[Rfam]
RNA sequence: GGUCCAAUGCCAUGGCGCUGGUAGCCAGAUAGCAAUGACUAAAAGCGACGCAAUGGUUGGACUGGAAUCAAUCUCAAAAAAAUUUGCAUUUUGAUGGGAACCUGUGGAUCGAUUUACUACCGUUCGUCCACGGAGCCAGUUUAUGCAAUUACAUUU
Numbered sequence: 001g002g003u004c005c006a007a008u009g010c011c012a013u014g015g016c017g018c019u020g021g022u023a024g025c026c027a028g029a030u031a032g033c034a035a036u037g038a039c040u041a042a043a044a045g046c047g048a049c050g051c052a053a054u055g056g057u058u059g060g061a062c063u064g065g066a067a068u069c070a071a072u073c074u075c076a077a078a079a080a081a082a083u084u085u086g087c088a089u090u091u092u093g094a095u096g097g098g099a100a101c102c103u104g105u106g107g108a109u110c111g112a113u114u115u116a117c118u119a120c121c122g123u124u125c126g127u128c129c130a131c132g133g134a135g136c137c138a139g140u141u142u143a144u145g146c147a148a149u150u151a152c153a154u155u156u
Stems, first nucleotide, its partner, number of pairs: 002062007009054001013050002016047003020040003024033002084148005097137002102133003106129004
A member of the RNA family "Small nucleolar RNA snoR2/U65" from Rhododendron simsii, 156 nucleotides long. Gene Ontology terms of the family: nucleolus and RNA processing. The family's RNA type in Rfam is H/ACA-box small nucleolar RNA. The family's consensus secondary structure was predicted with WAR.